Notes
The record is a 247-nucleotide RNA sequence from Oligoflexus sp., which matches "Group II catalytic intron D1-D4-6" in Rfam.
[Rfam]
RNA sequence: AAAGUCCCGUCGCGAAAGGAGGAGUCAGCUCCAUUGGGUAUCGAGUCUUGCAGUUCAGGCGGCGACAAAUGAAUUGAAGCGUAGACAGAGAAGCAUCCGAGCCGAAAUCCUUUAGGAUGAACGGUACCAAGCCUCGAAAUGCAGCCUAUUGUGUGAGCCGAUGGUCUAAUUAUACCAGCAGGCAACAGCGAGCAGAGCGGUCAUACUGACGAAUCCGCCUGCAAGCAAACACCGGGGUCUCAGCCGU
Numbered sequence: 001a002a003a004g005u006c007c008c009g010u011c012g013c014g015a016a017a018g019g020a021g022g023a024g025u026c027a028g029c030u031c032c033a034u035u036g037g038g039u040a041u042c043g044a045g046u047c048u049u050g051c052a053g054u055u056c057a058g059g060c061g062g063c064g065a066c067a068a069a070u071g072a073a074u075u076g077a078a079g080c081g082u083a084g085a086c087a088g089a090g091a092a093g094c095a096u097c098c099g100a101g102c103c104g105a106a107a108u109c110c111u112u113u114a115g116g117a118u119g120a121a122c123g124g125u126a127c128c129a130a131g132c133c134u135c136g137a138a139a140u141g142c143a144g145c146c147u148a149u150u151g152u153g154u155g156a157g158c159c160g161a162u163g164g165u166c167u168a169a170u171u172a173u174a175c176c177a178g179c180a181g182g183c184a185a186c187a188g189c190g191a192g193c194a195g196a197g198c199g200g201u202c203a204u205a206c207u208g209a210c211g212a213a214u215c216c217g218c219c220u221g222c223a224a225g226c227a228a229a230c231a232c233c234g235g236g237g238u239c240u241c242a243g244c245c246g247u
Stems, first nucleotide, its partner, number of pairs: 013036003018032004039091001041089002045086004049081002051076007061066001131238006151232004157183003162177004188226002192222004
Annotation
The base pairs follow the family's consensus structure. Rfam 15.1 lists 1,617 matches to the family in 661 species. NCBI's taxonomy places the organism under Bacteria, Pseudomonadati, Oligoflexia, Oligoflexaceae, Oligoflexus. Group II introns are found in rRNA, tRNA and mRNA of organelles in fungi, plants and protists, and also in mRNA in bacteria.